[Rfam]
RNA sequence: UCCGUGGCUGGGUUUCCCAGCAACUUCCUCUGCAGAUCCUUAUCACAAGGCUGCCGAGAUGACAACGCGGUUUUUACAGAUGUGUUUUGUGCGCGUGUUAAAGCCCUCCUGACUUUCAGAGUUUUGGAGAGGAAACAAAAACAAGUCCUUGUU
Numbered sequence: 001u002c003c004g005u006g007g008c009u010g011g012g013u014u015u016c017c018c019a020g021c022a023a024c025u026u027c028c029u030c031u032g033c034a035g036a037u038c039c040u041u042a043u044c045a046c047a048a049g050g051c052u053g054c055c056g057a058g059a060u061g062a063c064a065a066c067g068c069g070g071u072u073u074u075u076a077c078a079g080a081u082g083u084g085u086u087u088u089g090u091g092c093g094c095g096u097g098u099u100a101a102a103g104c105c106c107u108c109c110u111g112a113c114u115u116u117c118a119g120a121g122u123u124u125u126g127g128a129g130a131g132g133a134a135a136c137a138a139a140a141a142c143a144a145g146u147c148c149u150u151g152u153u
Base pairs, nucleotide, nucleotide: 005022006021009019010018011017012016026062027061028058029057030056032054033053034052035051037050038049040045079147080146081145082142083141085140086139087138088137089136090135104132105131106129107128108127109126112122113121116120
A member of the RNA family "Ascomycota telomerase RNA" from Trichoderma arundinaceum, 153 nucleotides of a longer RNA. By type it is a non-coding RNA gene. The pairing is the family consensus, mapped onto this sequence. The match comes from Rfam's covariance-model search (369 bits). Clan: Telomerase clan. Rfam 15.1 lists 475 matches to the family in 456 species.